Shown here is a 139-nucleotide sequence from Paspalum vaginatum, a member of the family "Small nucleolar RNA Z247".
[Rfam]
RNA sequence: GCACUUGAAGAUGAAGAAUUGGUGCAGUAUAUCCUUGCCGGUCUUGACCUAGAUUACAAUCCUGUUGUUUCUGCUAUUGCUGCUCUUGUGGAACCAAUCACUAUUGGGGAGAUGUAUUCGCAUCUCUUGAGAUUUGAAC
Dot-bracket structure: ....((((.....................................................................................(((((....)))))..........................))))..
Numbered sequence: 001g002c003a004c005u006u007g008a009a010g011a012u013g014a015a016g017a018a019u020u021g022g023u024g025c026a027g028u029a030u031a032u033c034c035u036u037g038c039c040g041g042u043c044u045u046g047a048c049c050u051a052g053a054u055u056a057c058a059a060u061c062c063u064g065u066u067g068u069u070u071c072u073g074c075u076a077u078u079g080c081u082g083c084u085c086u087u088g089u090g091g092a093a094c095c096a097a098u099c100a101c102u103a104u105u106g107g108g109g110a111g112a113u114g115u116a117u118u119c120g121c122a123u124c125u126c127u128u129g130a131g132a133u134u135u136g137a138a139c
Stems, first nucleotide, its partner, number of pairs: 005137004094107005

The family has 8 seed sequences and 7,071 matches in Rfam 15.1. Gene Ontology terms of the family: nucleolus and RNA processing. The family's consensus secondary structure was predicted with PFOLD.